The family of this 65-nucleotide RNA sequence from Clostridium chromiireducens is "Fluoride riboswitch aptamer (crcB RNA motif)". Lineage of the source: Bacteria > Bacillati > Clostridia > Clostridiaceae > Clostridium. A search with the family's covariance model found it, with a score of 48 bits.
[Rfam]
RNA sequence: AAUUUUAUAGGUGAUGAAGUUCGCCUUUAAACAUCUCUUUAGAGAUUGAUGACUUCUACUACAAU
Numbered sequence: 001a002a003u004u005u006u007a008u009a010g011g012u013g014a015u016g017a018a019g020u021u022c023g024c025c026u027u028u029a030a031a032c033a034u035c036u037c038u039u040u041a042g043a044g045a046u047u048g049a050u051g052a053c054u055u056c057u058a059c060u061a062c063a064a065u
Base pairs, nucleotide, nucleotide: 010025011024012023013022016056017055018054019053020052021051033046034045035044036043